Rfam assigns this 119-nucleotide RNA from Mycolicibacterium smegmatis to the family "Actinobacteria sRNA Ms_IGR-7". The base pairs follow the family's consensus structure. The family has 14 seed sequences and 463 matches in Rfam 15.1. It scores 96 bits against the family's covariance model. The source organism's lineage runs through Bacteria, Actinomycetota, Mycobacteriaceae, Mycobacterium and Mycolicibacterium smegmatis.
[Rfam]
RNA sequence: CGGAAGUGCCUUUCGAAGUUGUGCCGAUAAGUGCGUAAGGAACACUCAUCAUCGCAGCUCAGAAGGCACUUUCCUUAUAUCGACACCCGCCUAUCCAGGCUUUCCAUCGGUGGAUCGAG
Numbered sequence: 001c002g003g004a005a006g007u008g009c010c011u012u013u014c015g016a017a018g019u020u021g022u023g024c025c026g027a028u029a030a031g032u033g034c035g036u037a038a039g040g041a042a043c044a045c046u047c048a049u050c051a052u053c054g055c056a057g058c059u060c061a062g063a064a065g066g067c068a069c070u071u072u073c074c075u076u077a078u079a080u081c082g083a084c085a086c087c088c089g090c091c092u093a094u095c096c097a098g099g100c101u102u103u104c105c106a107u108c109g110g111u112g113g114a115u116c117g118a119g
Stems, first nucleotide, its partner, number of pairs: 002073012017059001019057005026050003030046001032044002100117001103114004